[Rfam]
RNA sequence: GUGAAUGUAGUUCAGUCGGUAGAGCACCAGAUUGUGGUUCUGGUUGUCGCGGGUUCGAGCCCCGUCAUUCACC
Numbered sequence: 001g002u003g004a005a006u007g008u009a010g011u012u013c014a015g016u017c018g019g020u021a022g023a024g025c026a027c028c029a030g031a032u033u034g035u036g037g038u039u040c041u042g043g044u045u046g047u048c049g050c051g052g053g054u055u056c057g058a059g060c061c062c063c064g065u066c067a068u069u070c071a072c073c
Base pairs, nucleotide, nucleotide: 001072002071003070004069005068006067007066010025011024012023013022027043028042029041030040031039049065050064051063052062053061

A member of the RNA family "tRNA" from Oceanispirochaeta crateris, 73 nucleotides long.
Rfam links the family to the GO term triplet codon-amino acid adaptor activity.
The family's RNA type in Rfam is transfer RNA.
About the family: Transfer RNA (tRNA) molecules are approximately 80 nucleotides in length.
The family's consensus secondary structure is taken from published work.
Its Rfam clan is "tRNA clan".